This 163-nucleotide RNA sequence from Bacillus sp. FJAT-50079 belongs to the Rfam family "glmS glucosamine-6-phosphate activated ribozyme aptamer". NCBI's taxonomy places the organism under Bacteria, Bacillati, Bacillota, Caryophanales, Bacillus. From the family's description: This entry contains a glucosamine-6-phosphate activated ribozyme that is found in the mRNA for GlmS. GlmS is an enzyme that uses fructose-6-phosphate and glutamine to generate glucosamine-6-phosphate. The ribozyme catalyses self cleavage of the glmS mRNA that is thought to regulate GlmS activity. A search with the family's covariance model found it, with a score of 114 bits. By type it is a riboswitch. Its family is annotated with catalytic activity and regulation of gene expression in the Gene Ontology.
RNA sequence: UUUUUAUAUAAAGCGCCAGAACUAAUCGCGGAUUGAUUAGUUGACGAGGUGGAGGUUUAUCGAAUGGUUCGGCGGAUGCCUCCCGGCUGUGACACACAGUCGUAUGUUCUUUCAUAAAUCAUCAGAGGUGACUCGGUGGACAACGGAAAGAUCAUGUGCACAU
Numbered sequence: 001u002u003u004u005u006a007u008a009u010a011a012a013g014c015g016c017c018a019g020a021a022c023u024a025a026u027c028g029c030g031g032a033u034u035g036a037u038u039a040g041u042u043g044a045c046g047a048g049g050u051g052g053a054g055g056u057u058u059a060u061c062g063a064a065u066g067g068u069u070c071g072g073c074g075g076a077u078g079c080c081u082c083c084c085g086g087c088u089g090u091g092a093c094a095c096a097c098a099g100u101c102g103u104a105u106g107u108u109c110u111u112u113c114a115u116a117a118a119u120c121a122u123c124a125g126a127g128g129u130g131a132c133u134c135g136g137u138g139g140a141c142a143a144c145g146g147a148a149a150g151a152u153c154a155u156g157u158g159c160a161c162a163u
Stems, first nucleotide, its partner, number of pairs: 020042008051083005060072004084102006106153001108151005120138004125134003